mraW RNA: a 114-nucleotide RNA from Chrysemys picta. NCBI's taxonomy places the organism under Eukaryota, Testudines, Cryptodira, Testudinoidea, Chrysemys picta. The family has 45 seed sequences and 851 matches in Rfam 15.1. A search with the family's covariance model found it, with a score of 54 bits.
[Rfam]
RNA sequence: UUGCUGAGUAGAUGUUUGGGCUCGGGCUGGAGCCCAAGCUCUGGGACCCUCCCCCAUUGCAGGGUGCCAGAACUUGGGCUCCAGCCUGAGCCCAAGUGUCUACACAGCAAUAUU
Numbered sequence: 001u002u003g004c005u006g007a008g009u010a011g012a013u014g015u016u017u018g019g020g021c022u023c024g025g026g027c028u029g030g031a032g033c034c035c036a037a038g039c040u041c042u043g044g045g046a047c048c049c050u051c052c053c054c055c056a057u058u059g060c061a062g063g064g065u066g067c068c069a070g071a072a073c074u075u076g077g078g079c080u081c082c083a084g085c086c087u088g089a090g091c092c093c094a095a096g097u098g099u100c101u102a103c104a105c106a107g108c109a110a111u112a113u114u
Base pairs, nucleotide, nucleotide: 010101011100012099013098014097015096016095018093019092021090022089023088024087025086026085027084028083029082030081031080032079033078034077035076036075037074038073040071041070042069043068044067046065047064048063049062050061